Shown here is an 86-nucleotide RNA from Parasporobacterium paucivorans, a member of the family "c-di-GMP-I riboswitch aptamer". NCBI's taxonomy places the organism under Bacteria, Bacillati, Clostridia, Parasporobacterium, Parasporobacterium paucivorans. Its Rfam clan is "c-di-GMP_I riboswitch clan". It scores 68 bits against the family's covariance model. GEMM was predicted in a large-scale screen for bacterial structured RNA regulatory elements. Genes associated with GEMM are involved in a diverse array of functions, including chemotaxis regulation, signal transduction, secretion and chitin.
RNA sequence: UUUAACACCUGGCAAAACCAAUGAAAAUUGGCGACGCAAAGCUAUUAGUCUAAGGCGAUUUUUGCUAUGAUUGUAAGGUUGCAAUU
Numbered sequence: 001u002u003u004a005a006c007a008c009c010u011g012g013c014a015a016a017a018c019c020a021a022u023g024a025a026a027a028u029u030g031g032c033g034a035c036g037c038a039a040a041g042c043u044a045u046u047a048g049u050c051u052a053a054g055g056c057g058a059u060u061u062u063u064g065c066u067a068u069g070a071u072u073g074u075a076a077g078g079u080u081g082c083a084a085u086u
Base pairs, nucleotide, nucleotide: 012037013036018031019030020029021028022027040080041079042078043077045076046075047074048071049070050069055065056064057063058062